The family of this 49-nucleotide RNA sequence from Gehongia tenuis is "uup RNA". By type it is a cis-regulatory element. The source organism's lineage runs through Bacteria, Bacillota, Clostridia, Christensenellaceae and Gehongia.

[Rfam]
RNA sequence: GAAGAAUUCGCUCCGAGCAAAUGGAUAACGAUGAGACGUUGUUCGGAGC
Numbered sequence: 001g002a003a004g005a006a007u008u009c010g011c012u013c014c015g016a017g018c019a020a021a022u023g024g025a026u027a028a029c030g031a032u033g034a035g036a037c038g039u040u041g042u043u044c045g046g047a048g049c
Stems, first nucleotide, its partner, number of pairs: 011048005017042003

Pairs were carried over by alignment from the consensus structure, which is taken from published work.